[Rfam]
RNA: Fluoride riboswitch aptamer (crcB RNA motif)
RNA sequence: AAUUGAAUAGGCGAUGACGUUCGCCGUAAAUAAUUGAUAAUAAUUUGAUGACGUCUAUUACUUU
Numbered sequence: 001a002a003u004u005g006a007a008u009a010g011g012c013g014a015u016g017a018c019g020u021u022c023g024c025c026g027u028a029a030a031u032a033a034u035u036g037a038u039a040a041u042a043a044u045u046u047g048a049u050g051a052c053g054u055c056u057a058u059u060a061c062u063u064u
Stems, first nucleotide, its partner, number of pairs: 010025004016055006032045004